[Rfam]
RNA sequence: GCCAAAUGAUGUCAACUAGGUGACAUUAGCACUCUGUGCAAAGAUGACCUUCAUCUAUCACCCAAUGCUGAUGGCU
Numbered sequence: 001g002c003c004a005a006a007u008g009a010u011g012u013c014a015a016c017u018a019g020g021u022g023a024c025a026u027u028a029g030c031a032c033u034c035u036g037u038g039c040a041a042a043g044a045u046g047a048c049c050u051u052c053a054u055c056u057a058u059c060a061c062c063c064a065a066u067g068c069u070g071a072u073g074g075c076u
Base pairs, nucleotide, nucleotide: 001075002074003073004072029039030038031037032036

Small nucleolar RNA SNORD83: a 76-nucleotide RNA sequence from Crypturellus soui. The family's RNA type in Rfam is C/D-box small nucleolar RNA. A search with the family's covariance model found it, with a score of 67 bits. Its family is annotated with RNA processing and nucleolus in the Gene Ontology. On this family, see Jady and Kiss, Nucleic Acids Res 2000: "Characterisation of the U83 and U84 small nucleolar RNAs: two novel 2'-O-ribose methylation guide RNAs that lack complementarities to ribosomal RNAs". Taxonomically the source falls in Crypturellus (Eukaryota, Opisthokonta, Craniata, Tinamidae). The family's consensus secondary structure was predicted with PFOLD.